[Rfam]
RNA sequence: UUUCCAUUUUCGCUGAGUUUCCUAAUGGGAAACGGGGGAACCAAAAAGUGAUUUGCUCAUUGCAAUCAAUGGGGCAAAAGUCACGAUUUCUGGGGUGAAUCUUUCGGAUAGAAUCACGUGUUUACGUGUAUACGAUUCAAUCCAAAGUAGGGCGACUCUCAAGUCCGAAUCCGUCAGCUAACCUCGUAAGCGUUAAGAGAGAGGUAAC
Numbered sequence: 001u002u003u004c005c006a007u008u009u010u011c012g013c014u015g016a017g018u019u020u021c022c023u024a025a026u027g028g029g030a031a032a033c034g035g036g037g038g039a040a041c042c043a044a045a046a047a048g049u050g051a052u053u054u055g056c057u058c059a060u061u062g063c064a065a066u067c068a069a070u071g072g073g074g075c076a077a078a079a080g081u082c083a084c085g086a087u088u089u090c091u092g093g094g095g096u097g098a099a100u101c102u103u104u105c106g107g108a109u110a111g112a113a114u115c116a117c118g119u120g121u122u123u124a125c126g127u128g129u130a131u132a133c134g135a136u137u138c139a140a141u142c143c144a145a146a147g148u149a150g151g152g153c154g155a156c157u158c159u160c161a162a163g164u165c166c167g168a169a170u171c172c173g174u175c176a177g178c179u180a181a182c183c184u185c186g187u188a189a190g191c192g193u194u195a196a197g198a199g200a201g202a203g204g205u206a207a208c
Stems, first nucleotide, its partner, number of pairs: 011192004018031003032187006042092002093172003101147004150166004
Dot-bracket structure: ..........((((...(((........)))((((((....((...............................................))(((.....((((.......................................))))..((((.........))))...))).........)))))).))))................
This 208-nucleotide RNA sequence from Paenibacillus sp. FSL H7-0331 belongs to the Rfam family "c-di-AMP riboswitch aptamer (ydaO/yuaA leader)".
Gene Ontology terms of the family: regulation of gene expression and cyclic-di-AMP binding.
Taxonomically the source falls in Paenibacillus (Bacteria, Bacillati, Bacilli, Caryophanales).
From the family's description: This family represents a conserved RNA structure found upstream of the ydaO and yuaA genes in Bacillus subtilis and related genes in other bacteria.
The pairing is the family consensus, mapped onto this sequence.